Rfam assigns this 86-nucleotide RNA sequence from Natronincola ferrireducens to the family "pan motif". The base pairs follow the family's consensus structure, which is taken from published work. A search with the family's covariance model found it, with a score of 37 bits. The family's RNA type in Rfam is cis-regulatory element.

[Rfam]
RNA sequence: CAGCUAAUAUCUACAGGAGUUAGACUGUUAUACAAUUACAAAUUUAUUUUAUAUUGUCCGGUAUCGUCGCUGAACUGGAACGGAGG
Numbered sequence: 001c002a003g004c005u006a007a008u009a010u011c012u013a014c015a016g017g018a019g020u021u022a023g024a025c026u027g028u029u030a031u032a033c034a035a036u037u038a039c040a041a042a043u044u045u046a047u048u049u050u051a052u053a054u055u056g057u058c059c060g061g062u063a064u065c066g067u068c069g070c071u072g073a074a075c076u077g078g079a080a081c082g083g084a085g086g
Stems, first nucleotide, its partner, number of pairs: 001027003004023005010018002055082003058078005064073003